[Rfam]
Nucleotides: 139
Base pairs, nucleotide, nucleotide: 003060004059005058006057015054016053017052018047019046020045023042024040026038027037028036064128065127066126067125068124069123070122071120073118074117081107082106083105084104
Number, partner (000 for none) and nucleotide at each position: 001000c002000c003060c004059a005058c006057u007000c008000u009000a010000u011000g012000g013000a014000a015054u016053c017052u018047a019046c020045a021000c022000u023042c024040a025000a026038c027037a028036g029000u030000u031000u032000a033000u034000u035000c036028c037027u038026g039000c040024u041000g042023g043000u044000a045020u046019g047018u048000u049000u050000a051000a052017a053016g054015g055000a056000c057006a058005g059004u060003g061000c062000a063000a064128u065127a066126g067125a068124a069123a070122u071120u072000c073118a074117a075000u076000a077000u078000c079000u080000g081107g082106c083105a084104u085000u086000g087000g088000u089000g090000g091000u092000u093000u094000u095000c096000u097000u098000g099000g100000c101000u102000c103000u104084g105083u106082g107081c108000a109000u110000g111000u112000c113000a114000u115000a116000c117074u118073u119000c120071g121000g122070a123069u124068u125067u126066c127065u128064a129000u130000u131000g132000c133000u134000a135000c136000a137000g138000u139000a